[Rfam]
RNA: Eukaryotic large subunit ribosomal RNA, nucleotides 2060 to 2342
Organism: Drosophila yakuba
RNA sequence: AAGUCGGCAAAUUAGAUCCGUAACUUCGGGAUAAGGAUUGGCUGAAGAUUGAGAUAGUCGGGCUUGAUUGGGAAACAAUAACAUGGUUUAAGUGCUCGUUCUGGGUAAAUAGAGUUUCUAGCAUUUAUGUUAGUUUCUUGUUCCCCGGAUAGUUUAGUCACGUAGCCAAUUGUGGAACUUUCUUGGUAAAAUUUUUAAGAAUACUAUUUGGGUUAAACCAAUUAGUUCUUAUUAAUUAUAACGAUUAUCAAUUAACAAUCAAUUCAGAACUGGCACGGACUUG
Numbered sequence: 001a002a003g004u005c006g007g008c009a010a011a012u013u014a015g016a017u018c019c020g021u022a023a024c025u026u027c028g029g030g031a032u033a034a035g036g037a038u039u040g041g042c043u044g045a046a047g048a049u050u051g052a053g054a055u056a057g058u059c060g061g062g063c064u065u066g067a068u069u070g071g072g073a074a075a076c077a078a079u080a081a082c083a084u085g086g087u088u089u090a091a092g093u094g095c096u097c098g099u100u101c102u103g104g105g106u107a108a109a110u111a112g113a114g115u116u117u118c119u120a121g122c123a124u125u126u127a128u129g130u131u132a133g134u135u136u137c138u139u140g141u142u143c144c145c146c147g148g149a150u151a152g153u154u155u156a157g158u159c160a161c162g163u164a165g166c167c168a169a170u171u172g173u174g175g176a177a178c179u180u181u182c183u184u185g186g187u188a189a190a191a192u193u194u195u196u197a198a199g200a201a202u203a204c205u206a207u208u209u210g211g212g213u214u215a216a217a218c219c220a221a222u223u224a225g226u227u228c229u230u231a232u233u234a235a236u237u238a239u240a241a242c243g244a245u246u247a248u249c250a251a252u253u254a255a256c257a258a259u260c261a262a263u264u265c266a267g268a269a270c271u272g273g274c275a276c277g278g279a280c281u282u283g
Stems, first nucleotide, its partner, number of pairs: 015039005024029001040271002042267005047260005053249008062153003068147001075141004080135003084132004089127008098118001099114005272276001
Dot-bracket structure: ..............(((((....(....).....)))))((((((((((((.((((((((.(((...(......((((.(((.((((.((((((((.((((((......)))))...).)))))))).)))))))..)))).....)...)))........................................................................................))))))))......)))))..)))))..))(...).......